Rfam assigns this 73-nucleotide RNA from Rodentolepis nana to the family "HDV ribozyme from F. prausnitzii".
A reference for the family is Webb et al. (2009), "Widespread occurrence of self-cleaving ribozymes", Science.
The source organism's lineage runs through Eukaryota, Spiralia, Cestoda, Eucestoda and Rodentolepis.

[Rfam]
RNA sequence: AGGGGCGUACGAUAGGCAUACCUCUACGUGGUGCACCCUGGGCAACGUAUACUCAUACGGCAAAAAAGUCUAU
Numbered sequence: 001a002g003g004g005g006c007g008u009a010c011g012a013u014a015g016g017c018a019u020a021c022c023u024c025u026a027c028g029u030g031g032u033g034c035a036c037c038c039u040g041g042g043c044a045a046c047g048u049a050u051a052c053u054c055a056u057a058c059g060g061c062a063a064a065a066a067a068g069u070c071u072a073u
Base pairs, nucleotide, nucleotide: 002037003036005034006033020032021031022030046059047058048057049056050055